[Rfam]
RNA sequence: ACACUGAAAGGAGGUGAUCCUGAGUUGAGUACCACCAGGAUGCGUGAGGUGGCUGCUCGCUAGAGCCGCCCCUGCCUGUGCAGUGUGUGGGGCCUGACGGCCUCCGGCGGCAGGCGCAGACCCAAGCAGUCACCCGGCCCGCGGGCUCACCGGUACAUCCCCGGUGCCUCGGCCGCCGGUCCCUCGCGGACCGGCGGCGGGGAAGCAGCCCGCGGGCCGUCUGCA
Numbered sequence: 001a002c003a004c005u006g007a008a009a010g011g012a013g014g015u016g017a018u019c020c021u022g023a024g025u026u027g028a029g030u031a032c033c034a035c036c037a038g039g040a041u042g043c044g045u046g047a048g049g050u051g052g053c054u055g056c057u058c059g060c061u062a063g064a065g066c067c068g069c070c071c072c073u074g075c076c077u078g079u080g081c082a083g084u085g086u087g088u089g090g091g092g093c094c095u096g097a098c099g100g101c102c103u104c105c106g107g108c109g110g111c112a113g114g115c116g117c118a119g120a121c122c123c124a125a126g127c128a129g130u131c132a133c134c135c136g137g138c139c140c141g142c143g144g145g146c147u148c149a150c151c152g153g154u155a156c157a158u159c160c161c162c163g164g165u166g167c168c169u170c171g172g173c174c175g176c177c178g179g180u181c182c183c184u185c186g187c188g189g190a191c192c193g194g195c196g197g198c199g200g201g202g203a204a205g206c207a208g209c210c211c212g213c214g215g216g217c218c219g220u221c222u223g224c225a
Stems, first nucleotide, its partner, number of pairs: 013057004018052001058116004063111001066110001068108003074101002135219013150194005
RNA: Actinobacteria sRNA Ms_IGR-5